The family of this 600-nucleotide part of an RNA from Ktedonobacteria bacterium brp13 is "Bacterial small subunit ribosomal RNA".
[Rfam]
RNA sequence: UGACGGGGACCCGCACAAGCAGCGGAGCGUGUGGUUUAAUUCGAUGCAACGCGAAGAACCUUACCAGGACUUGACAUGCAAAUGCACCAGCGGUAACGCGCUGUCUCCUUCGGGAGCGUUUGCACAGGUGCUGCAUGGCUGUCGUCAGCUCGUGUCGUGAGAUGUUGGGUUAAGUCCCGCAACGAGCGCAACCCCUAUCGUUAGUUGUACUUUUCUAGCGAGACUGCCGGUCAAACGGAGGAAGGAGGGGAUGACGUCAAGUCAGCACGGCCCUUACGUUCUGGGCGACACACACGCUACAAUGGUCAGGACAAUGGGAAGCGAACCCGCGAGGGGGAGCAAAUCUGAGCAAACCUGAUCUCAGUUCGGAUUGGAGGCUGCAACCCGCCUCCAUGAAGUUGGAGUUGCUAGUAACCGCAAGUCAGCACAUUGCGGUGAAUACGUUCCCGGGUCUUGUACACACCGCCCGUCACACCACGAAAGUCGGCAACACCUGAAGCCGCCAGGCUAACCCGCAAGGGAGGCAAGCGUCGAGGGUGGGGUCGGUGAUUGGGGUGAAGUCGUAACAAGGUAGCCGUACCGGAAGGUGCGGCUGGAUCA
Numbered sequence: 001u002g003a004c005g006g007g008g009a010c011c012c013g014c015a016c017a018a019g020c021a022g023c024g025g026a027g028c029g030u031g032u033g034g035u036u037u038a039a040u041u042c043g044a045u046g047c048a049a050c051g052c053g054a055a056g057a058a059c060c061u062u063a064c065c066a067g068g069a070c071u072u073g074a075c076a077u078g079c080a081a082a083u084g085c086a087c088c089a090g091c092g093g094u095a096a097c098g099c100g101c102u103g104u105c106u107c108c109u110u111c112g113g114g115a116g117c118g119u120u121u122g123c124a125c126a127g128g129u130g131c132u133g134c135a136u137g138g139c140u141g142u143c144g145u146c147a148g149c150u151c152g153u154g155u156c157g158u159g160a161g162a163u164g165u166u167g168g169g170u171u172a173a174g175u176c177c178c179g180c181a182a183c184g185a186g187c188g189c190a191a192c193c194c195c196u197a198u199c200g201u202u203a204g205u206u207g208u209a210c211u212u213u214u215c216u217a218g219c220g221a222g223a224c225u226g227c228c229g230g231u232c233a234a235a236c237g238g239a240g241g242a243a244g245g246a247g248g249g250g251a252u253g254a255c256g257u258c259a260a261g262u263c264a265g266c267a268c269g270g271c272c273c274u275u276a277c278g279u280u281c282u283g284g285g286c287g288a289c290a291c292a293c294a295c296g297c298u299a300c301a302a303u304g305g306u307c308a309g310g311a312c313a314a315u316g317g318g319a320a321g322c323g324a325a326c327c328c329g330c331g332a333g334g335g336g337g338a339g340c341a342a343a344u345c346u347g348a349g350c351a352a353a354c355c356u357g358a359u360c361u362c363a364g365u366u367c368g369g370a371u372u373g374g375a376g377g378c379u380g381c382a383a384c385c386c387g388c389c390u391c392c393a394u395g396a397a398g399u400u401g402g403a404g405u406u407g408c409u410a411g412u413a414a415c416c417g418c419a420a421g422u423c424a425g426c427a428c429a430u431u432g433c434g435g436u437g438a439a440u441a442c443g444u445u446c447c448c449g450g451g452u453c454u455u456g457u458a459c460a461c462a463c464c465g466c467c468c469g470u471c472a473c474a475c476c477a478c479g480a481a482a483g484u485c486g487g488c489a490a491c492a493c494c495u496g497a498a499g500c501c502g503c504c505a506g507g508c509u510a511a512c513c514c515g516c517a518a519g520g521g522a523g524g525c526a527a528g529c530g531u532c533g534a535g536g537g538u539g540g541g542g543u544c545g546g547u548g549a550u551u552g553g554g555g556u557g558a559a560g561u562c563g564u565a566a567c568a569a570g571g572u573a574g575c576c577g578u579a580c581c582g583g584a585a586g587g588u589g590c591g592g593c594u595g596g597a598u599c600a
Stems, first nucleotide, its partner, number of pairs: 001460002003457003007454007015444002019408005024300001026298008034289002040055004064284007077124002080121005087103001093097001105116004127273002130271004136267002138262003141258001143256002148187006154163003166179004193250004198221007224241002227238003304360007317346002321340002326335003367398001372393007414436007463570001465567001468563002473557004478552003483547006491539004499532001501530003507525003512521002572595010
Rfam links the family to the GO terms structural constituent of ribosome and ribosome. Lineage of the source: Bacteria > Bacillati > Chloroflexota > Ktedonobacteria. It scores 1477 bits against the family's covariance model.